The family of this 58-nucleotide RNA sequence from Trichormus variabilis is "Avashort 5' UTR thermometer". Rfam classes the family as an RNA thermoregulator. A reference for the family is Cimdins et al. (2014), "Translational control of small heat shock genes in mesophilic and thermophilic cyanobacteria by RNA thermometers", RNA Biol. Rfam links the family to the GO terms regulation of translation and response to temperature stimulus. The organism belongs to Trichormus variabilis, within Bacteria.

[Rfam]
RNA sequence: AAGAUUAAAGCCUGGAAGCGAUUCGCAGGAAAACCUUAGAGGAGUCAAAGAUAUGACA
Numbered sequence: 001a002a003g004a005u006u007a008a009a010g011c012c013u014g015g016a017a018g019c020g021a022u023u024c025g026c027a028g029g030a031a032a033a034c035c036u037u038a039g040a041g042g043a044g045u046c047a048a049a050g051a052u053a054u055g056a057c058a
Base pairs, nucleotide, nucleotide: 011029012028013027014026015024016023017022034042035041044057045056046055047054